[Rfam]
RNA: mir-290 microRNA precursor family
Organism: Peromyscus maniculatus
RNA sequence: GCGGCCAUCAAAGUGGAAGCCCUCUCCGAGGCUUGUCCGGAAAGUGCAUCCAUUUUGUUUGCCUC
Dot-bracket structure: ...((.(.(((((((((.((.((.(((...........))).)).)).))))))))).).))...